[Rfam]
RNA sequence: GUGCAUUCUCGUAAACCCCCUAGUUGCUAAUGUUAGCUUCUGGGACAAGGAAGGAUGCUAGAUCAAACUAGAGAUCCAAAGCUGAGGGCCGUGUGUCAGUGGCUCUCGGUUAUUUCAGCUCUAGGACAUUC
Numbered sequence: 001g002u003g004c005a006u007u008c009u010c011g012u013a014a015a016c017c018c019c020c021u022a023g024u025u026g027c028u029a030a031u032g033u034u035a036g037c038u039u040c041u042g043g044g045a046c047a048a049g050g051a052a053g054g055a056u057g058c059u060a061g062a063u064c065a066a067a068c069u070a071g072a073g074a075u076c077c078a079a080a081g082c083u084g085a086g087g088g089c090c091g092u093g094u095g096u097c098a099g100u101g102g103c104u105c106u107c108g109g110u111u112a113u114u115u116c117a118g119c120u121c122u123a124g125g126a127c128a129u130u131c
Stems, first nucleotide, its partner, number of pairs: 003058004009050002012048001019044005026037002061131002068124005080111007088103002094099001

This 131-nucleotide RNA sequence from Oncorhynchus mykiss belongs to the Rfam family "Small nucleolar RNA SNORA14". The base pairs follow the family's consensus structure, which was predicted with RNAfold. Taxonomically the source falls in Oncorhynchus (Eukaryota, Opisthokonta, Chordata, Salmoniformes). Rfam's curators write: ACA14 is a member of the H/ACA class of snoRNA that guide the sites of modification of uridines to pseudouridines.